[Rfam]
RNA sequence: UUAACAGAUUGCCUCUGUCAUUACCCGCCAAGAGUGGAUAUGGGAAUGUAAUUGAUGA
Numbered sequence: 001u002u003a004a005c006a007g008a009u010u011g012c013c014u015c016u017g018u019c020a021u022u023a024c025c026c027g028c029c030a031a032g033a034g035u036g037g038a039u040a041u042g043g044g045a046a047u048g049u050a051a052u053u054g055a056u057g058a
Stems, first nucleotide, its partner, number of pairs: 007053006018043004025037003
Shown here is a 58-nucleotide RNA sequence, a member of the family "Transposase-1 RNA".